[Rfam]
RNA sequence: GGCUUCUCAUUGAUCUCCCUUCUGUCUAUUUGUGGCAUUUGAUGGAUUUACCUGAGAAGAUGAGAGAAUUCACAGAACUAGCAUUAUUUUACCUUCUGUCUUUACAGAGGUAUAUUUGACUGUUUUGUGAGACAUUC
Number, nucleotide and partner (000 for none) at each position: 001g000002g000003c059004u058005u057006c056007u055008c054009a000010u000011u000012g000013a000014u000015c000016u046017c045018c044019c000020u000021u000022c000023u037024g036025u035026c034027u000028a000029u000030u000031u000032g000033u000034g026035g025036c024037a023038u000039u000040u000041g000042a000043u000044g018045g017046a016047u000048u000049u000050a000051c000052c000053u000054g008055a007056g006057a005058a004059g003060a000061u000062g000063a000064g000065a000066g000067a000068a000069u000070u130071c129072a128073c127074a126075g125076a000077a000078c000079u000080a000081g000082c000083a000084u000085u000086a000087u000088u000089u000090u000091a000092c000093c110094u109095u108096c107097u106098g105099u000100c000101u000102u000103u000104a000105c098106a097107g096108a095109g094110g093111u000112a000113u000114a000115u000116u000117u000118g000119a000120c000121u000122g000123u000124u000125u075126u074127g073128u072129g071130a070131g000132a000133c000134a000135u000136u000137c000